[Rfam]
Annotation
Rfam assigns this 60-nucleotide RNA sequence from Pterocles burchelli to the family "Selenocysteine insertion sequence 1". It scores 36 bits against the family's covariance model. The base pairs follow the family's consensus structure, which is taken from published work. Lineage of the source: Eukaryota > Deuterostomia > Dipnotetrapodomorpha > Amniota > Pterocles.
RNA sequence: UAUUUGUUAUGACAGUCACAGCAUAAAGCACAGGUGGCUGUGACUUGAUUGUGGAAAAUA
Numbered sequence: 001u002a003u004u005u006g007u008u009a010u011g012a013c014a015g016u017c018a019c020a021g022c023a024u025a026a027a028g029c030a031c032a033g034g035u036g037g038c039u040g041u042g043a044c045u046u047g048a049u050u051g052u053g054g055a056a057a058a059u060a
Stems, first nucleotide, its partner, number of pairs: 001060005014045009029034001
By type it is a cis-regulatory element.